[Rfam]
RNA sequence: AAUUAUUGUCGUUCAAAGUAAAUCUCGUGCGGCUUGUUCUGUGCUCAAGCCGUAAUAGAUUUACUUAGAUUGAUAAUAAA
Numbered sequence: 001a002a003u004u005a006u007u008g009u010c011g012u013u014c015a016a017a018g019u020a021a022a023u024c025u026c027g028u029g030c031g032g033c034u035u036g037u038u039c040u041g042u043g044c045u046c047a048a049g050c051c052g053u054a055a056u057a058g059a060u061u062u063a064c065u066u067a068g069a070u071u072g073a074u075a076a077u078a079a080a
Stems, first nucleotide, its partner, number of pairs: 006076006013069002016066010028054009
Dot-bracket structure: .....((((((.((.((((((((((..(((((((((.........)))))))))..)))))))))).)).))))))....
A member of the RNA family "mir-2767 microRNA precursor family" from Leptidea sinapis, 80 nucleotides long. The match comes from Rfam's covariance-model search (74 bits). The organism belongs to Leptidea, within Eukaryota. The family's consensus secondary structure was predicted with RNAalifold.